[Rfam]
Plastid-atpF group II-D1 intron: a 54-nucleotide RNA from Momordica charantia.
Pairs were carried over by alignment from the consensus structure, which was predicted with LocARNA.
Rfam's curators write: Plastid atpF is a non-coding RNA (ncRNA) recognised in plastids. It has been reported in the intron group II-D1 region of ATP synthase (atpF) genes.
Rfam 15.1 lists 1,372 matches to the family in 227 species.
Taxonomically the source falls in Momordica (Eukaryota, Viridiplantae, Streptophytina, Embryophyta).
Rfam links the family to the GO term Group II intron splicing.
RNA sequence: GGAUUUUUUUUCUAUAUAGAACACUCAUGUCAGAUAAAAUGAUUUGAACCUUUU
Numbered sequence: 001g002g003a004u005u006u007u008u009u010u011u012c013u014a015u016a017u018a019g020a021a022c023a024c025u026c027a028u029g030u031c032a033g034a035u036a037a038a039a040u041g042a043u044u045u046g047a048a049c050c051u052u053u054u
Stems, first nucleotide, its partner, number of pairs: 011034003014030004